[Rfam]
RNA: drz-agam-1 ribozyme
RNA sequence: UACUACCAAACCCUAUCUCUACCUCCACGUGGUGACCGCUGGGAGCUUUUUCAUAACAAAAAGCUGCAAACGGAGAAGG
Numbered sequence: 001u002a003c004u005a006c007c008a009a010a011c012c013c014u015a016u017c018u019c020u021a022c023c024u025c026c027a028c029g030u031g032g033u034g035a036c037c038g039c040u041g042g043g044a045g046c047u048u049u050u051u052c053a054u055a056a057c058a059a060a061a062a063g064c065u066g067c068a069a070a071c072g073g074a075g076a077a078g079g
Base pairs, nucleotide, nucleotide: 012079013078014077016075018073019072021033022032023031044065045064046063047062048061049060050059051058